Background: The record is a 97-nucleotide RNA from Nicotiana tabacum, which matches "MIR6152 microRNA precursor family" in Rfam. NCBI's taxonomy places the organism under Eukaryota, Euphyllophyta, Magnoliopsida, Solanales, Nicotiana. The match comes from Rfam's covariance-model search (92 bits). Rfam links the family to the GO terms miRNA-mediated post-transcriptional gene silencing and RISC complex. The base pairs follow the family's consensus structure, which was predicted with RNAalifold.

RNA sequence: UGGACAAAUUACUAUAUUCGACUGUAUACACGGCGUGAAAUAGGGAAUUACAUUGUUUUUAAAUGGAAAGUGUAUCAAUUUAACAUAAUAGACUCCU
Numbered sequence: 001u002g003g004a005c006a007a008a009u010u011a012c013u014a015u016a017u018u019c020g021a022c023u024g025u026a027u028a029c030a031c032g033g034c035g036u037g038a039a040a041u042a043g044g045g046a047a048u049u050a051c052a053u054u055g056u057u058u059u060u061a062a063a064u065g066g067a068a069a070g071u072g073u074a075u076c077a078a079u080u081u082a083a084c085a086u087a088a089u090a091g092a093c094u095c096c097u
Base pairs, nucleotide, nucleotide: 002096003095004094009091010090011089013087014086015085017083018082020081021080023077024076026075027074028073029072030071031070034065035064036063037059038058039057040056041055042054043053